[Rfam]
RNA sequence: CCUGCCACUGUACCUGUCUUGUAGUGCAUUGACUAGUACAGUCCAGAGGUGAGCUGACAGAAAAUGCCAACUUCGGAAACAGAGUUAUUCAUCUUUGGGGUAACUUUGUGCCAGAGUUGGGGAGCAGGU
Numbered sequence: 001c002c003u004g005c006c007a008c009u010g011u012a013c014c015u016g017u018c019u020u021g022u023a024g025u026g027c028a029u030u031g032a033c034u035a036g037u038a039c040a041g042u043c044c045a046g047a048g049g050u051g052a053g054c055u056g057a058c059a060g061a062a063a064a065u066g067c068c069a070a071c072u073u074c075g076g077a078a079a080c081a082g083a084g085u086u087a088u089u090c091a092u093c094u095u096u097g098g099g100g101u102a103a104c105u106u107u108g109u110g111c112c113a114g115a116g117u118u119g120g121g122g123a124g125c126a127g128g129u
Stems, first nucleotide, its partner, number of pairs: 005049002008046003018036002021033001022031002065122001067120006075112002080108006088100003